A member of the RNA family "Plastid-psbN 5UTR RNA" from Phtheirospermum japonicum, 57 nucleotides long.
The source organism's lineage runs through Eukaryota, Embryophyta, Pentapetalae, Lamiales and Phtheirospermum.
The base pairs follow the family's consensus structure, which was predicted with LocARNA.
A search with the family's covariance model found it, with a score of 57 bits.
RNA sequence: UGCGACACCCAUCAAAGGAGUCGUUCCCCACCCAGGAGCUACUUUACCCCGGGGUUC
Numbered sequence: 001u002g003c004g005a006c007a008c009c010c011a012u013c014a015a016a017g018g019a020g021u022c023g024u025u026c027c028c029c030a031c032c033c034a035g036g037a038g039c040u041a042c043u044u045u046a047c048c049c050c051g052g053g054g055u056u057c
Base pairs, nucleotide, nucleotide: 017045018044019043020042021041023039024038025037026036027035